[Rfam]
Overview
Rfam assigns this 134-nucleotide RNA from Pteropus alecto to the family "Small nucleolar RNA SNORA5". About the family: ACA5 is a member of the H/ACA class of snoRNA that guide the sites of modification of uridines to pseudouridines. Rfam classes the family as an H/ACA-box small nucleolar RNA. The family is grouped with related families in Rfam's "SNORA5 clan".
RNA sequence: CGCAGCCUUGUCAAAUUCGGUGCCUGCCCACCCAUGGCCUGCGCUGGCCCAAAAGGCUGCCAUAGAAACACUGUGACUCAUGGGCCCUGACCUCCUCUGCUGGGUCUCAGGGAUAGAUUUGGUUACAGACACCA
Number, nucleotide and partner (000 for none) at each position: 001c000002g060003c059004a058005g057006c000007c000008u000009u000010g000011u000012c000013a000014a000015a000016u000017u000018c046019g045020g044021u043022g042023c041024c000025u000026g038027c037028c036029c000030a000031c000032c000033c000034a000035u000036g028037g027038c026039c000040u000041g023042c022043g021044c020045u019046g018047g000048c000049c000050c000051a000052a000053a000054a000055g000056g000057c005058u004059g003060c002061c000062a000063u000064a000065g000066a000067a000068a000069c000070a000071c000072u000073g126074u125075g124076a123077c122078u121079c000080a000081u000082g000083g000084g000085c112086c111087c110088u109089g108090a000091c000092c000093u000094c000095c000096u000097c000098u000099g000100c000101u000102g000103g000104g000105u000106c000107u000108c089109a088110g087111g086112g085113a000114u000115a000116g000117a000118u000119u000120u000121g078122g077123u076124u075125a074126c073127a000128g000129a000130c000131a000132c000133c000134a000